Rfam assigns this 587-nucleotide part of an RNA from Neomoorella thermoacetica to the family "Bacterial large subunit ribosomal RNA". The literature on the family includes a 2001 paper in Science by Yusupov et al., "Crystal structure of the ribosome at 5.5 A resolution". The match comes from Rfam's covariance-model search (2970 bits).
RNA sequence: CCUGCGAUAGGACAGAAAGACCCCGUGGAGCUUUACUGUAGCCUGACAUUGGGUUUUGGUGUUUCAUGUACAGGAUAGGUGGGAGGCAGCGAACCACUGCCGCCAGGUAGUGGGGAGCCGACGGUGGGAUACCACUCUUGAAGCACUGAAAUUCUAACCCGAGUCCGUAAACCGGACUGGGGACCGUGUCAGGUGGGCAGUUUGACUGGGGCGGUCGCCUCCUAAAAGGUAACGGAGGCGUCCAAAGGUUCCCUCAGCGCGGUUAGAAAUCGCGCGUAGAGUGCAAAGGCAGAAGGGAGCUUGACUGCGAGACCGACGGGUCGAGCAGGGACGAAAGUCGGGCUUAGUGAUCCGGUGGUCCCGGGUGGAAGGGCCAUCGCUCAACGGAUAAAAGCUACCCCGGGGAUAACAGGCUUAUCCCGCCCAAGAGUCCACAUCGACGGCGGGGUUUGGCACCUCGAUGUCGGCUCAUCGCAUCCUGGGGCUGAAGUAGGUCCCAAGGGUUGGGCUGUUCGCCCAUUAAAGCGGUACGUGAGCUGGGUUCAGAACGUCGUGAGACAGUUCGGUCCCUAUCCAUCGCAGGCGGA
Numbered sequence: 001c002c003u004g005c006g007a008u009a010g011g012a013c014a015g016a017a018a019g020a021c022c023c024c025g026u027g028g029a030g031c032u033u034u035a036c037u038g039u040a041g042c043c044u045g046a047c048a049u050u051g052g053g054u055u056u057u058g059g060u061g062u063u064u065c066a067u068g069u070a071c072a073g074g075a076u077a078g079g080u081g082g083g084a085g086g087c088a089g090c091g092a093a094c095c096a097c098u099g100c101c102g103c104c105a106g107g108u109a110g111u112g113g114g115g116a117g118c119c120g121a122c123g124g125u126g127g128g129a130u131a132c133c134a135c136u137c138u139u140g141a142a143g144c145a146c147u148g149a150a151a152u153u154c155u156a157a158c159c160c161g162a163g164u165c166c167g168u169a170a171a172c173c174g175g176a177c178u179g180g181g182g183a184c185c186g187u188g189u190c191a192g193g194u195g196g197g198c199a200g201u202u203u204g205a206c207u208g209g210g211g212c213g214g215u216c217g218c219c220u221c222c223u224a225a226a227a228g229g230u231a232a233c234g235g236a237g238g239c240g241u242c243c244a245a246a247g248g249u250u251c252c253c254u255c256a257g258c259g260c261g262g263u264u265a266g267a268a269a270u271c272g273c274g275c276g277u278a279g280a281g282u283g284c285a286a287a288g289g290c291a292g293a294a295g296g297g298a299g300c301u302u303g304a305c306u307g308c309g310a311g312a313c314c315g316a317c318g319g320g321u322c323g324a325g326c327a328g329g330g331a332c333g334a335a336a337g338u339c340g341g342g343c344u345u346a347g348u349g350a351u352c353c354g355g356u357g358g359u360c361c362c363g364g365g366u367g368g369a370a371g372g373g374c375c376a377u378c379g380c381u382c383a384a385c386g387g388a389u390a391a392a393a394g395c396u397a398c399c400c401c402g403g404g405g406a407u408a409a410c411a412g413g414c415u416u417a418u419c420c421c422g423c424c425c426a427a428g429a430g431u432c433c434a435c436a437u438c439g440a441c442g443g444c445g446g447g448g449u450u451u452g453g454c455a456c457c458u459c460g461a462u463g464u465c466g467g468c469u470c471a472u473c474g475c476a477u478c479c480u481g482g483g484g485c486u487g488a489a490g491u492a493g494g495u496c497c498c499a500a501g502g503g504u505u506g507g508g509c510u511g512u513u514c515g516c517c518c519a520u521u522a523a524a525g526c527g528g529u530a531c532g533u534g535a536g537c538u539g540g541g542u543u544c545a546g547a548a549c550g551u552c553g554u555g556a557g558a559c560a561g562u563u564c565g566g567u568c569c570c571u572a573u574c575c576a577u578c579g580c581a582g583g584c585g586g587a
Base pairs, nucleotide, nucleotide: 001583002582003581004580005579006578007577008576010575011574012573015569022404023403024402025401027400028399029396030395031394032393033392035201036200037199038198042193043192044191045190046189047188048187051154052153053152054151055150056149057148058147059146060145061144062143063142064141065140066139068137078136079135080134081133082132085119086118087117094113095112096111097110098109099108100107101106158181159180160179162178163177164176165175166174167173204216205215206214207213217239218238219237220236221235222234240385242342243341248300249299250298251297252296253295254280255279257275258274259273260272261271262270281290282289305328306327307326308325311322312321313320330339331338332337353379354378355377356376357375358374359373361372362371413454414453415452417451418448419447420446421445422444423443424442428438429437465540466538467537468536469535470532471529472528473527474526475525478503479502481498482497483496484495485494486493505519506518507517508516509515546564547563548562549561550559551558552557